A member of the RNA family "Small nucleolar RNA U19" from Camellia sinensis, 121 nucleotides long. The base pairs follow the family's consensus structure, which was predicted with WAR. Taxonomically the source falls in Camellia (Eukaryota, Streptophyta, Streptophytina, asterids).
[Rfam]
RNA sequence: GCUUGGUUUAGUUAGGGGGCAUAAACUAAUUCAUACCCAAAUUUGGGUCUUCAACUAAGGCCUUUUUGAGGGGACUCUAUGUUUCACCACCAUAUUGUCCUCCAAACAGACUUGAACAUUU
Numbered sequence: 001g002c003u004u005g006g007u008u009u010a011g012u013u014a015g016g017g018g019g020c021a022u023a024a025a026c027u028a029a030u031u032c033a034u035a036c037c038c039a040a041a042u043u044u045g046g047g048u049c050u051u052c053a054a055c056u057a058a059g060g061c062c063u064u065u066u067u068g069a070g071g072g073g074a075c076u077c078u079a080u081g082u083u084u085c086a087c088c089a090c091c092a093u094a095u096u097g098u099c100c101u102c103c104a105a106a107c108a109g110a111c112u113u114g115a116a117c118a119u120u121u
Stems, first nucleotide, its partner, number of pairs: 004021002007018003035048004056114004061109001065106004070102006078094001
A reference for the family is Marker et al. (2002), "Experimental RNomics: identification of 140 candidates for small non-messenger RNAs in the plant Arabidopsis thaliana", Curr Biol.